Shown here is a 176-nucleotide RNA sequence from Aegilops tauschii, a member of the family "Small nucleolar RNA Z112". A search with the family's covariance model found it, with a score of 75 bits. Rfam links the family to the GO terms RNA processing and nucleolus. Pairs were carried over by alignment from the consensus structure, which was predicted with PFOLD. Taxonomically the source falls in Aegilops tauschii (Eukaryota, Poales, Triticeae, Triticinae). The literature on the family includes a 2002 paper in Nucleic Acids Res by Liang et al., "A novel gene organization: intronic snoRNA gene clusters from Oryza sativa".
[Rfam]
RNA sequence: UUCUUGGUGAAGAGCUCCAGACCAUAGUAGCUGCCCGUAUAGCACUAUGCAUCAGUUGCUUCUCUGCAACUGCAAAUGUCCAUCCUUGUAUGAUAGGUUUGCUAUGGGAUGUAAAUGCCCAUUUGCACCGGCUUGAUUCAGCUUUGUGUUCCAUUUUAAACGGUUCUCCGAGGGGC
Numbered sequence: 001u002u003c004u005u006g007g008u009g010a011a012g013a014g015c016u017c018c019a020g021a022c023c024a025u026a027g028u029a030g031c032u033g034c035c036c037g038u039a040u041a042g043c044a045c046u047a048u049g050c051a052u053c054a055g056u057u058g059c060u061u062c063u064c065u066g067c068a069a070c071u072g073c074a075a076a077u078g079u080c081c082a083u084c085c086u087u088g089u090a091u092g093a094u095a096g097g098u099u100u101g102c103u104a105u106g107g108g109a110u111g112u113a114a115a116u117g118c119c120c121a122u123u124u125g126c127a128c129c130g131g132c133u134u135g136a137u138u139c140a141g142c143u144u145u146g147u148g149u150u151c152c153a154u155u156u157u158a159a160a161c162g163g164u165u166c167u168c169c170g171a172g173g174g175g176c
Stems, first nucleotide, its partner, number of pairs: 002175004071127008079113001081111005089104002093100001095099001